[Rfam]
RNA sequence: CGCCGAACACAGGGGAGCGCCACCGGGGCGCUGAGAGUGCGGGAGGCCGCAGACCCUCAAACCUGAUCCGGUUAGCACCGGCGUAGGGAGUUGGGAAUUCUCCUCG
Numbered sequence: 001c002g003c004c005g006a007a008c009a010c011a012g013g014g015g016a017g018c019g020c021c022a023c024c025g026g027g028g029c030g031c032u033g034a035g036a037g038u039g040c041g042g043g044a045g046g047c048c049g050c051a052g053a054c055c056c057u058c059a060a061a062c063c064u065g066a067u068c069c070g071g072u073u074a075g076c077a078c079c080g081g082c083g084u085a086g087g088g089a090g091u092u093g094g095g096a097a098u099u100c101u102c103c104u105c106g
Stems, first nucleotide, its partner, number of pairs: 009091002011057004017031005038051005062087004068081004